[Rfam]
RNA sequence: GGGUGUUUUCAUUCGGAUACGAAUGAGCAGGUUGGUACAUCGGUCGGGCCGCCGGUG
Numbered sequence: 001g002g003g004u005g006u007u008u009u010c011a012u013u014c015g016g017a018u019a020c021g022a023a024u025g026a027g028c029a030g031g032u033u034g035g036u037a038c039a040u041c042g043g044u045c046g047g048g049c050c051g052c053c054g055g056u057g
Stems, first nucleotide, its partner, number of pairs: 005028003008023003038057007
A member of the RNA family "nhaA-I RNA" from Novosphingobium sediminicola, 57 nucleotides long. By type it is a riboswitch. Acidobacteria, Alphaproteobacteria, Betaproteobacteria and Gammaproteobacteria, Verrucomicrobia, cand. division NC10.